[Rfam]
RNA sequence: CCGGGAGUCGGUCGGACGCUUGCGUCCGCCAACCUGGUCAGGUCCGGAAGGAAGCAGCCACAACGGGUUGCGGCGGGUCGGCCGGCUCCUCCUUU
Numbered sequence: 001c002c003g004g005g006a007g008u009c010g011g012u013c014g015g016a017c018g019c020u021u022g023c024g025u026c027c028g029c030c031a032a033c034c035u036g037g038u039c040a041g042g043u044c045c046g047g048a049a050g051g052a053a054g055c056a057g058c059c060a061c062a063a064c065g066g067g068u069u070g071c072g073g074c075g076g077g078u079c080g081g082c083c084g085g086c087u088c089c090u091c092c093u094u095u
Base pairs, nucleotide, nucleotide: 003092004091005090007088008085009084010083011082012081013080017075018074019073020072024068025067026066027065028064035060036059037058038057043052044051045050
Shown here is a 95-nucleotide RNA sequence from Tsuneonella aeria, a member of the family "Bacterial small signal recognition particle RNA". Lineage of the source: Bacteria > Pseudomonadati > Alphaproteobacteria > Sphingomonadales > Tsuneonella. The signal recognition particle (SRP) is a universally conserved ribonucleoprotein involved in the co-translational targeting of proteins to membranes. The family's consensus secondary structure is taken from published work. Gene Ontology terms of the family: SRP-dependent cotranslational protein targeting to membrane, signal sequence recognition and signal recognition particle, plasma membrane targeting.